[Rfam]
RNA sequence: GCCCUCUGCCCGGAGACCUCUGGGUUCUGAGCUGUGACGUGGCUUCGGAGCUGGGAUCUCGGGGGUCUUGGUUCAGGGU
Numbered sequence: 001g002c003c004c005u006c007u008g009c010c011c012g013g014a015g016a017c018c019u020c021u022g023g024g025u026u027c028u029g030a031g032c033u034g035u036g037a038c039g040u041g042g043c044u045u046c047g048g049a050g051c052u053g054g055g056a057u058c059u060c061g062g063g064g065g066u067c068u069u070g071g072u073u074c075a076g077g078g079u
Base pairs, nucleotide, nucleotide: 004078005077006076007075008074011071013069014068015067016066017065018064019063020062022060023059024058026056027055028054030052031051032050033049
Dot-bracket structure: ...(((((..(.((((((((.(((.(((.((((...............)))).))).))).)))))))).)..))))).

This 79-nucleotide RNA from Equus caballus belongs to the Rfam family "mir-769 microRNA precursor family". The family's consensus secondary structure was predicted with RNAalifold. The source organism's lineage runs through Eukaryota, Chordata, Tetrapoda, Mammalia and Equus. The family has 8 seed sequences and 126 matches in Rfam 15.1.